[Rfam]
RNA: c-di-AMP riboswitch aptamer (ydaO/yuaA leader)
Organism: Kribbella antiqua
RNA sequence: ACGAUCCAGGCGCCCCCUGCGAUCCAGAUGGCGGGAGCGGGGGACCCACCCGGGCCCUCCAGGUCCACCGGUCGUGCCUUGCACGGCCUUGGGGUGAAGCCGCGUCGCAUCGACGGCUAGGCCGGGCACCACCGCGCCCGAACCCGACAGCUGACCCCGUAGGCGUGGCGGAGGUUUU
Numbered sequence: 001a002c003g004a005u006c007c008a009g010g011c012g013c014c015c016c017c018u019g020c021g022a023u024c025c026a027g028a029u030g031g032c033g034g035g036a037g038c039g040g041g042g043g044a045c046c047c048a049c050c051c052g053g054g055c056c057c058u059c060c061a062g063g064u065c066c067a068c069c070g071g072u073c074g075u076g077c078c079u080u081g082c083a084c085g086g087c088c089u090u091g092g093g094g095u096g097a098a099g100c101c102g103c104g105u106c107g108c109a110u111c112g113a114c115g116g117c118u119a120g121g122c123c124g125g126g127c128a129c130c131a132c133c134g135c136g137c138c139c140g141a142a143c144c145c146g147a148c149a150g151c152u153g154a155c156c157c158c159g160u161a162g163g164c165g166u167g168g169c170g171g172a173g174g175u176u177u178u
Stems, first nucleotide, its partner, number of pairs: 011165004018036001020034001037160006047091002092145003100121002124139004